Background
The family of this 28-nucleotide RNA is "L31-Firmicutes ribosomal protein leader". Rfam classes the family as a cis-regulatory leader.
RNA sequence: CUAUGACACAUCGUCAUGGCGGAAGGAG
Numbered sequence: 001c002u003a004u005g006a007c008a009c010a011u012c013g014u015c016a017u018g019g020c021g022g023a024a025g026g027a028g
Stems, first nucleotide, its partner, number of pairs: 001019007